[Rfam]
RNA sequence: UGGAGCAGUUCAAACGAUCGCCGGUUCAUUCCUGUGAUCCGGAGGAAAGUCCGAACACCGUAGGGCAGGGUGCUCCAUAACGUGGAGUCGCGGCAACGCGAAGGAAAGUGCAACAGAAAGUAUACCGCCCUGUAGAUAUUUACAGGGUAAGGGUGAAACGGUGCGGUAAGAGCGCACCAGUUCCCCGGGUGACCGGGGAAGCUAUGUAAACCCCACUCGGUGCAAGACCAAAUAGGGGAGCGUUUGAGGACGGCUCGUCCGAGUUCCCGGGUAGGUCGCAAGAGGUGCCUGGCAACCGGCAUCCAUAGAUGAAUGAUCGUUACCUGUUCCAGGGUAACCUGAACAGGGGACAGAAUUCGGCUUAUAGGCUGCUCCAGCCG
Numbered sequence: 001u002g003g004a005g006c007a008g009u010u011c012a013a014a015c016g017a018u019c020g021c022c023g024g025u026u027c028a029u030u031c032c033u034g035u036g037a038u039c040c041g042g043a044g045g046a047a048a049g050u051c052c053g054a055a056c057a058c059c060g061u062a063g064g065g066c067a068g069g070g071u072g073c074u075c076c077a078u079a080a081c082g083u084g085g086a087g088u089c090g091c092g093g094c095a096a097c098g099c100g101a102a103g104g105a106a107a108g109u110g111c112a113a114c115a116g117a118a119a120g121u122a123u124a125c126c127g128c129c130c131u132g133u134a135g136a137u138a139u140u141u142a143c144a145g146g147g148u149a150a151g152g153g154u155g156a157a158a159c160g161g162u163g164c165g166g167u168a169a170g171a172g173c174g175c176a177c178c179a180g181u182u183c184c185c186c187g188g189g190u191g192a193c194c195g196g197g198g199a200a201g202c203u204a205u206g207u208a209a210a211c212c213c214c215a216c217u218c219g220g221u222g223c224a225a226g227a228c229c230a231a232a233u234a235g236g237g238g239a240g241c242g243u244u245u246g247a248g249g250a251c252g253g254c255u256c257g258u259c260c261g262a263g264u265u266c267c268c269g270g271g272u273a274g275g276u277c278g279c280a281a282g283a284g285g286u287g288c289c290u291g292g293c294a295a296c297c298g299g300c301a302u303c304c305a306u307a308g309a310u311g312a313a314u315g316a317u318c319g320u321u322a323c324c325u326g327u328u329c330c331a332g333g334g335u336a337a338c339c340u341g342a343a344c345a346g347g348g349g350a351c352a353g354a355a356u357u358c359g360g361c362u363u364a365u366a367g368g369c370u371g372c373u374c375c376a377g378c379c380g
Stems, first nucleotide, its partner, number of pairs: 001376009011367001012365001013321007021042004026037004047363003051360005056222004063256004068218005073087005088102001089100004103213002108211002110207003125152002127148009160178006180202001181200008226277004236268006248260004284303006291296001
Shown here is a 380-nucleotide RNA sequence from Desulfobacteraceae bacterium SEEP-SAG9, a member of the family "Bacterial RNase P class A". The organism belongs to Desulfobacteraceae, within Bacteria. The base pairs follow the family's consensus structure, which is taken from published work. Rfam describes the family as follows. Ribonuclease P (RNase P) is a ubiquitous endoribonuclease, found in archaea, bacteria and eukarya as well as chloroplasts and mitochondria. It is annotated as a ribozyme.